[Rfam]
RNA sequence: GGUUGCAACAUCCCCGUGGGUUGGGUAAUGGCUUGAUUCCAAGCCGGUACAGCGAGCCCACUGCAGCC
Numbered sequence: 001g002g003u004u005g006c007a008a009c010a011u012c013c014c015c016g017u018g019g020g021u022u023g024g025g026u027a028a029u030g031g032c033u034u035g036a037u038u039c040c041a042a043g044c045c046g047g048u049a050c051a052g053c054g055a056g057c058c059c060a061c062u063g064c065a066g067c068c
Stems, first nucleotide, its partner, number of pairs: 001068007013054001014052001016061007023053001025050003029046007
The family of this 68-nucleotide sequence from Edaphobacter modestus is "nadA riboswitch". A reference for the family is Huang et al. (2020), "Structure and ligand binding of the ADP-binding domain of the NAD(+) riboswitch", RNA.